The family of this 54-nucleotide sequence from Mycolicibacterium rhodesiae is "L31-Actinobacteria ribosomal protein leader". The organism belongs to Mycolicibacterium rhodesiae, within Bacteria. It is one of the family's seed sequences.
RNA sequence: UCGGUCCCGGUUCACGCCGAAACCUCCUGGUCAACGGAGGGGCGACCCGGGGCC
Numbered sequence: 001u002c003g004g005u006c007c008c009g010g011u012u013c014a015c016g017c018c019g020a021a022a023c024c025u026c027c028u029g030g031u032c033a034a035c036g037g038a039g040g041g042g043c044g045a046c047c048c049g050g051g052g053c054c
Stems, first nucleotide, its partner, number of pairs: 003054003007050004015044004023040005